A member of the RNA family "Plastid-rps12 3UTR RNA" from Lamprocapnos spectabilis, 96 nucleotides long. A reference for the family is Richter et al. (2023), "Retrograde signaling in plants: A critical review focusing on the GUN pathway and beyond", Plant Commun. Rfam's curators write: Plastid rpl20 is a non-coding RNA (ncRNA) recognised in plastids. It was found in the three prime untranslated region (3UTR) of rps12 gene, its 3UTR location sugest a role in transcript maduration. The base pairs follow the family's consensus structure, which was predicted with LocARNA.
RNA sequence: GGUUUCCAUUGGUACAAAUCCGAUCACCUCAAUUGGAGAUGAGAAGCAAUUCCCCAUUGGUAGCAAAUGGUUAUCCAUUAAGCGGGGGAAAUCUUA
Numbered sequence: 001g002g003u004u005u006c007c008a009u010u011g012g013u014a015c016a017a018a019u020c021c022g023a024u025c026a027c028c029u030c031a032a033u034u035g036g037a038g039a040u041g042a043g044a045a046g047c048a049a050u051u052c053c054c055c056a057u058u059g060g061u062a063g064c065a066a067a068u069g070g071u072u073a074u075c076c077a078u079u080a081a082g083c084g085g086g087g088g089a090a091a092u093c094u095u096a
Stems, first nucleotide, its partner, number of pairs: 009023004052087004056078002059075006